[Rfam]
RNA sequence: AAAUGGACUAGGUCGGGCAGUUAGGCCCUGCUCGUCACCCGCACUAUGGUCUUCAGCGGGGACCGAACGCCGGGCUCGUCCGGUCAGACCGGGCCGGGCCCCGGAAGCCGACGCAGAAGCCUCGUCCUGCGGGGACAGAGGUCUGCGGCGCGCGCUCGCAGGGGCGUCGUCGUCGCAGUUAACCGGUGGUAAUCCGUCAGGCACGGAAGUGAGCAGCGGACCGCCGGACAUCUGUCGCUCGUAGGGUUGCGGGGUGGAGAAGGCACCCGGGACUACCCGGCCCGGAACGCCGGGCAACCCCGGUCGUCCGCAU
Dot-bracket structure: (..(((((..((((((((((.......))))))....(((((.............)))))))))....((((((.(.(((((......((((((((((.(((((..(((..(.(....((((((((((((((((((((.((.(((((((((((((((....)))))).).)))))))).)..(((((((...(((((....(((....)))....)))))))))))).)..))))).))))))))...))))))).).)..)))..)))))....))))))))))....).)))).).)))))).)))))..)

The family of this 313-nucleotide RNA from a halophilic archaeon is "Archaeal signal recognition particle RNA".
A search with the family's covariance model found it, with a score of 193 bits.
On this family, see Wild et al., Curr Opin Struct Biol 2002: "Towards the structure of the mammalian signal recognition particle".